[Rfam]
RNA sequence: UAUAAUGAAUCUGCUUACCUGAAGUGUGUUUCCGCAGAAAUUUCGAAAAAGCUGGCAACAGUAAAGGCAUGUUACAAGCCUUAAAGACAUUGAAGUGAUUAAGGUUGCUGAAAAUGGCUAUAAGA
Dot-bracket structure: .........(((((...................)))))...........................(.((........(((((((..((......))..))))))).........)).).......